[Rfam]
The record is a 309-nucleotide RNA from Cucurbita maxima, which matches "Plant signal recognition particle RNA" in Rfam. The match comes from Rfam's covariance-model search (223 bits). Taxonomically the source falls in Cucurbita (Eukaryota, Streptophytina, Embryophyta, eudicotyledons). On this family, see Wild et al., Curr Opin Struct Biol 2002: "Towards the structure of the mammalian signal recognition particle". The family's consensus secondary structure is taken from published work. The family's RNA type in Rfam is non-coding RNA gene.
RNA sequence: GCCGAGCUUGGUUGCGUAAGCUUGUAACUCGAGCGAGGGCAAUAGAGAGAUGGAACAUGAGCCCAAAUUGUGUAGGCCGGGUUGAAGUGGCUAUAUAUACACUGUCCAGCCCAUUUCAAGCAAGGAGAUGGACCGUACGGUAUGUGCGAAAGCCCAGGCUUUGCGGUCCCUAGAGUAGAGGGGAACGCGUCAGGCUGGCCUCACAGAGCAACGAUAACCUCUCUCUCUUUGCAGUGAAAGGAACACUGGUUGGUGCCUCUUGGACCCACCCAAGGUCCUAAAAUUGGGCUUUAAUGAACCAUCUUUUUU
Number, nucleotide and partner (000 for none) at each position: 001g040002c039003c038004g023005a022006g021007c020008u019009u018010g017011g000012u000013u000014g000015c000016g000017u010018a009019a008020g007021c006022u005023u004024g000025u000026a000027a000028c037029u036030c035031g000032a000033g000034c000035g030036a029037g028038g003039g002040c001041a000042a000043u000044a308045g307046a306047g305048a304049g303050a302051u301052g300053g299054a000055a000056c296057a295058u293059g292060a291061g289062c288063c287064c286065a285066a284067a000068u283069u282070g000071u280072g279073u000074a000075g277076g276077c275078c274079g267080g266081g265082u264083u263084g000085a261086a260087g000088u000089g257090g256091c000092u255093a254094u000095a000096u000097a000098u000099a000100c000101a000102c253103u252104g251105u000106c249107c248108a247109g246110c000111c241112c240113a000114u239115u238116u237117c236118a235119a000120g232121c231122a230123a229124g228125g227126a226127g225128a224129u000130g169131g168132a167133c166134c165135g164136u163137a162138c000139g160140g159141u158142a000143u156144g155145u000146g153147c152148g000149a000150a000151a000152g147153c146154c000155c144156a143157g000158g141159c140160u139161u000162u137163g136164c135165g134166g133167u132168c131169c130170c175171u000172a000173g000174a000175g170176u000177a222178g221179a220180g219181g218182g000183g000184a000185a000186c000187g000188c213189g212190u211191c000192a000193g000194g000195c206196u205197g204198g000199c000200c000201u000202c000203a000204c197205a196206g195207a000208g000209c000210a000211a190212c189213g188214a000215u000216a000217a000218c181219c180220u179221c178222u177223c000224u128225c127226u126227c125228u124229u123230u122231g121232c120233a000234g000235u118236g117237a116238a115239a114240g112241g111242a000243a000244c000245a000246c109247u108248g107249g106250u000251u104252g103253g102254u093255g092256c090257c089258u000259c000260u086261u085262g000263g083264a082265c081266c080267c079268a000269c000270c000271c000272a000273a000274g078275g077276u076277c075278c000279u072280a071281a000282a069283a068284u066285u065286g064287g063288g062289c061290u000291u060292u059293a058294a000295u057296g056297a000298a000299c053300c052301a051302u050303c049304u048305u047306u046307u045308u044309u000